[Rfam]
The family of this 91-nucleotide RNA sequence from Garciella nitratireducens is "SAM riboswitch aptamer (S box leader)". Rfam links the family to the GO term regulation of gene expression. Lineage of the source: Bacteria > Bacillati > Clostridia > Eubacteriales > Garciella nitratireducens. It scores 53 bits against the family's covariance model.
RNA sequence: AUCUUAUCUAGAAUUAGGGGAGAGAGUUGGCUCAAUGAUCCUAUACCAACCUACUGAAAAAGUAAGGUGGUCCAGCUAACAGCGAUAAGAA
Numbered sequence: 001a002u003c004u005u006a007u008c009u010a011g012a013a014u015u016a017g018g019g020g021a022g023a024g025a026g027u028u029g030g031c032u033c034a035a036u037g038a039u040c041c042u043a044u045a046c047c048a049a050c051c052u053a054c055u056g057a058a059a060a061a062g063u064a065a066g067g068u069g070g071u072c073c074a075g076c077u078a079a080c081a082g083c084g085a086u087a088a089g090a091a
Stems, first nucleotide, its partner, number of pairs: 002090007013044001015043004022033003027079004045071004050067002052064004075083001